[Rfam]
RNA: PyrR binding site
Organism: Capillibacterium thermochitinicola
RNA sequence: AGGGCCUUUAAAACUUGUCCCGUGAGGCAAGGAAGGCAGAACGAACAGAAAUUUUCUGUGCAUGACCACUUUCUAUGCUUAAGCAUGCUUAAGGAUAGGAAUGUUAAGCUGCCUGCGCUUGCCGGCAGCUUUUUUUGAU
Numbered sequence: 001a002g003g004g005c006c007u008u009u010a011a012a013a014c015u016u017g018u019c020c021c022g023u024g025a026g027g028c029a030a031g032g033a034a035g036g037c038a039g040a041a042c043g044a045a046c047a048g049a050a051a052u053u054u055u056c057u058g059u060g061c062a063u064g065a066c067c068a069c070u071u072u073c074u075a076u077g078c079u080u081a082a083g084c085a086u087g088c089u090u091a092a093g094g095a096u097a098g099g100a101a102u103g104u105u106a107a108g109c110u111g112c113c114u115g116c117g118c119u120u121g122c123c124g125g126c127a128g129c130u131u132u133u134u135u136u137g138a139u
Stems, first nucleotide, its partner, number of pairs: 004037006014031006070101007078093006103134001106131008115122002